[Rfam]
RNA sequence: CUUCACCGACCCCAGCCACAACGGCUCGUCCCGCCCCUGACCGUAGGUCGCCAGGAGCGCCUGGGCCUC
Numbered sequence: 001c002u003u004c005a006c007c008g009a010c011c012c013c014a015g016c017c018a019c020a021a022c023g024g025c026u027c028g029u030c031c032c033g034c035c036c037c038u039g040a041c042c043g044u045a046g047g048u049c050g051c052c053a054g055g056a057g058c059g060c061c062u063g064g065g066c067c068u069c
Stems, first nucleotide, its partner, number of pairs: 014026004032059002037054003041050001043048001
A member of the RNA family "ASpks TB sRNA" from Kitasatospora griseola, 69 nucleotides long. On this family, see Arnvig and Young, Mol Microbiol 2009: "Identification of small RNAs in Mycobacterium tuberculosis". The family's RNA type in Rfam is antisense RNA.